[Rfam]
The family of this 40-nucleotide sequence from a Sphingobacteriales bacterium is "DUF805b RNA". By type it is a cis-regulatory element. The base pairs follow the family's consensus structure, which is taken from published work. NCBI's taxonomy places the organism under Bacteria, Pseudomonadati, Bacteroidota, Sphingobacteriia, Sphingobacteriales.

RNA sequence: UACGGAAAUGCCGAAAACCGUAUUUUAAACAGAGUAGGCA
Dot-bracket structure: .((((....[[[.....))))...............]]].